[Rfam]
A member of the RNA family "let-7 microRNA precursor family" from Aquarana catesbeiana, 88 nucleotides long.
Rfam 15.1 lists 8,694 matches to the family in 797 species.
The literature on the family includes a 2001 paper in Nat Rev Genet by Rougvie, "Control of developmental timing in animals".
It scores 68 bits against the family's covariance model.
About the family: This family represents the microRNAs (miRNA) let-7 and mir-98. let-7 was identified from a study of developmental timing in C. elegans, and was later shown to be part of a much larger class of non-coding RNAs termed miRNAs.
Clan: let-7 microRNA precursor clan.
RNA sequence: CUGGGCUGAGGUAGUUGUUUGUACAGUUUGAGGGUCCGUGACAUCGCCCGCAGCUGGAGAUAACUGUACAGAUCACUGCCUUGCCUAG
Numbered sequence: 001c002u003g004g005g006c007u008g009a010g011g012u013a014g015u016u017g018u019u020u021g022u023a024c025a026g027u028u029u030g031a032g033g034g035u036c037c038g039u040g041a042c043a044u045c046g047c048c049c050g051c052a053g054c055u056g057g058a059g060a061u062a063a064c065u066g067u068a069c070a071g072a073u074c075a076c077u078g079c080c081u082u083g084c085c086u087a088g
Base pairs, nucleotide, nucleotide: 001088002087003086004085005084006083008082009081010080011079012078013077014076015075017073018072019071020070021069022068023067024066025065026064027063032049033048034047035046